[Rfam]
RNA: c-di-GMP-I-GGC riboswitch aptamer
RNA sequence: UUGACCAAAGGCAAACUCGUUCGAAAGGCGGGGGCGCAAAGCCACGGGUCUUCCGUUAUAGAAACUAUAACCAGACAGCCGGGUUGCUCAGA
Numbered sequence: 001u002u003g004a005c006c007a008a009a010g011g012c013a014a015a016c017u018c019g020u021u022c023g024a025a026a027g028g029c030g031g032g033g034g035c036g037c038a039a040a041g042c043c044a045c046g047g048g049u050c051u052u053c054c055g056u057u058a059u060a061g062a063a064a065c066u067a068u069a070a071c072c073a074g075a076c077a078g079c080c081g082g083g084u085u086g087c088u089c090a091g092a
Base pairs, nucleotide, nucleotide: 001092003089004088011037012036016032017031018030019029020028022027035078040085041084042083043082045081046080047079048076049075050074